[Rfam]
RNA sequence: UAGGUGAUCGCUGGACGCAGCGGUUUAUCGAUCUCUUCCUGGCCUUGUUGUCUCUAAUUUGAGCGUUUGCUGGGAUGCCUCAAAAGGGUAAGAGUGCGAGGGUACAAAGCGGGAAUCGGUCGAUAAACCUCUGCAUCCGGCUCUCACCUU
Number, nucleotide and partner (000 for none) at each position: 001u000002a000003g000004g000005u000006g000007a000008u000009c000010g000011c000012u000013g138014g137015a136016c000017g000018c133019a132020g131021c000022g129023g128024u127025u126026u000027a124028u123029c122030g121031a120032u119033c118034u000035c000036u115037u114038c113039c112040u111041g110042g000043c000044c000045u000046u000047g000048u000049u000050g000051u000052c000053u000054c000055u000056a000057a000058u000059u000060u000061g000062a000063g000064c000065g000066u000067u000068u000069g000070c000071u000072g000073g000074g000075a000076u000077g000078c000079c000080u000081c000082a000083a000084a000085a000086g000087g000088g000089u000090a000091a000092g000093a000094g000095u000096g000097c000098g000099a000100g000101g000102g000103u000104a000105c000106a000107a000108a000109g000110c041111g040112g039113g038114a037115a036116u000117c000118g033119g032120u031121c030122g029123a028124u027125a000126a025127a024128c023129c022130u000131c020132u019133g018134c000135a000136u015137c014138c013139g000140g000141c000142u000143c000144u000145c000146a000147c000148c000149u000150u000
RNA: MIR162_1 microRNA precursor family
Organism: Apostasia shenzhenica